[Rfam]
Notes: XIST RNA A repeat: a 37-nucleotide RNA from Cnephaeus nilssonii.

RNA sequence: UUUCCCAUCAGGGCUGCGGAUACCUGGUUUUAUUUAU
Numbered sequence: 001u002u003u004c005c006c007a008u009c010a011g012g013g014c015u016g017c018g019g020a021u022a023c024c025u026g027g028u029u030u031u032a033u034u035u036a037u
Base pairs, nucleotide, nucleotide: 004013005012006011017026018025019024
Record summary:
NCBI's taxonomy places the organism under Eukaryota, Bilateria, Vertebrata, Mammalia, Cnephaeus. The base pairs follow the family's consensus structure, which was predicted with CMfinder. By type it is a small RNA.